tRNA: a 72-nucleotide RNA from Phaeodactylibacter luteus. A search with the family's covariance model found it, with a score of 64 bits. The family's RNA type in Rfam is transfer RNA. Lineage of the source: Bacteria > Bacteroidota > Saprospiria > Saprospirales > Phaeodactylibacter.

[Rfam]
RNA sequence: GGCCCGUUCGUCUAGGGGUUAGGACGCCAGAUUUUCAUUCUGGUAGCACGGGUUCGAAUCCCGUACGGGCUA
Numbered sequence: 001g002g003c004c005c006g007u008u009c010g011u012c013u014a015g016g017g018g019u020u021a022g023g024a025c026g027c028c029a030g031a032u033u034u035u036c037a038u039u040c041u042g043g044u045a046g047c048a049c050g051g052g053u054u055c056g057a058a059u060c061c062c063g064u065a066c067g068g069g070c071u072a
Stems, first nucleotide, its partner, number of pairs: 001071007010025004027043005048064005